RNA sequence: CCGCGUCAGCACCCGUGCUGGCUGACAACCAAAAUCAUAAAAAUUUCCUUAUUGACUGGCCGGUAGUGAUACCGGCCAUUUUUUU
Numbered sequence: 001c002c003g004c005g006u007c008a009g010c011a012c013c014c015g016u017g018c019u020g021g022c023u024g025a026c027a028a029c030c031a032a033a034a035u036c037a038u039a040a041a042a043a044u045u046u047c048c049u050u051a052u053u054g055a056c057u058g059g060c061c062g063g064u065a066g067u068g069a070u071a072c073c074g075g076c077c078a079u080u081u082u083u084u085u
Stems, first nucleotide, its partner, number of pairs: 001021003031035001057078009

Shown here is an 85-nucleotide RNA from Erwinia sp. Leaf53, a member of the family "sroB RNA". Pairs were carried over by alignment from the consensus structure, which was predicted with LocARNA. Taxonomically the source falls in Erwinia (Bacteria, Pseudomonadati, Enterobacterales, Erwiniaceae).